A member of the RNA family "SAM (S-adenosyl methionine) riboswitch aptamer" from Gordonia bronchialis, 118 nucleotides long. A search with the family's covariance model found it, with a score of 109 bits.
RNA sequence: GGUCAUGAGCAUCAGCGUCAAGCCCCGGCUCGCUGAUCGGCAACCCUCCAACCGCGGUGGGGUGCUCCGGGUGAUGACCGGGUUGUGGGUUCGUGCAGAACCCCGGCAAGCGCGGGUC
Numbered sequence: 001g002g003u004c005a006u007g008a009g010c011a012u013c014a015g016c017g018u019c020a021a022g023c024c025c026c027g028g029c030u031c032g033c034u035g036a037u038c039g040g041c042a043a044c045c046c047u048c049c050a051a052c053c054g055c056g057g058u059g060g061g062g063u064g065c066u067c068c069g070g071g072u073g074a075u076g077a078c079c080g081g082g083u084u085g086u087g088g089g090u091u092c093g094u095g096c097a098g099a100a101c102c103c104c105g106g107c108a109a110g111c112g113c114g115g116g117u118c
Base pairs, nucleotide, nucleotide: 001079002078003077004076009038011037012036013035014034015033016032021030022029039066040065041064044062045061046060048057049056082107083106084105085104087103088102089101090100091099092098